[Rfam]
RNA: Magnesium riboswitch aptamer (Magnesium responsive RNA element)
RNA sequence: CUUACCGGAGGCUGUAUGGAUCCCGAUCCCACCCCUCUCCCGAAACGGAGAAAAACCCCUUUCCGGUAAGCCUGCAUUCACUGUCUUACCGGAAACGUAAGACAGUGACGUUCU
Numbered sequence: 001c002u003u004a005c006c007g008g009a010g011g012c013u014g015u016a017u018g019g020a021u022c023c024c025g026a027u028c029c030c031a032c033c034c035c036u037c038u039c040c041c042g043a044a045a046c047g048g049a050g051a052a053a054a055a056c057c058c059c060u061u062u063c064c065g066g067u068a069a070g071c072c073u074g075c076a077u078u079c080a081c082u083g084u085c086u087u088a089c090c091g092g093a094a095a096c097g098u099a100a101g102a103c104a105g106u107g108a109c110g111u112u113c114u
Base pairs, nucleotide, nucleotide: 001070002069003068004067005066006065007064008063009062010061011060017031018030019029036051037050038049039048040047080106081105082104083103084102085101086100087099088098089097